[Rfam]
RNA sequence: CAUAUCACUCGGCCUAGUCUCAGAAAUGAGAGCGGAGGAACCAAUUUUUUUGGGGUUAAUUCUACUUUGUAGAAGGGAUGAGAGUUCUCUUUCGCCAUCCUACCCGUCAGCUAACUUCGUCGGCUAAAGCGAAGGAGGUC
Numbered sequence: 001c002a003u004a005u006c007a008c009u010c011g012g013c014c015u016a017g018u019c020u021c022a023g024a025a026a027u028g029a030g031a032g033c034g035g036a037g038g039a040a041c042c043a044a045u046u047u048u049u050u051u052g053g054g055g056u057u058a059a060u061u062c063u064a065c066u067u068u069g070u071a072g073a074a075g076g077g078a079u080g081a082g083a084g085u086u087c088u089c090u091u092u093c094g095c096c097a098u099c100c101u102a103c104c105c106g107u108c109a110g111c112u113a114a115c116u117u118c119g120u121c122g123g124c125u126a127a128a129g130c131g132a133a134g135g136a137g138g139u140c
Base pairs, nucleotide, nucleotide: 011125012124013123014122018031019030020029032120033119034118035117036116037115042052043051053105054104055103061073062072063071064070076100077099078098079097
Dot-bracket structure: ..........((((...(((........)))((((((....((.......))(((.....((((.....))))..((((.................))))..))).........)))))).))))...............
The record is a 140-nucleotide RNA, which matches "c-di-AMP riboswitch aptamer (ydaO/yuaA leader)" in Rfam. This family represents a conserved RNA structure found upstream of the ydaO and yuaA genes in Bacillus subtilis and related genes in other bacteria. The ydaO/yuaA element is thought to act as a genetic 'off' switch for the ydaO and yuaA genes in its native state. It is believed that the element may be triggered during osmotic shock leading to activation of ydaO, a predicted amino acid transporter gene, and members of the yuaA-yubG operon which code for KtrA and KtrB K+ transporters.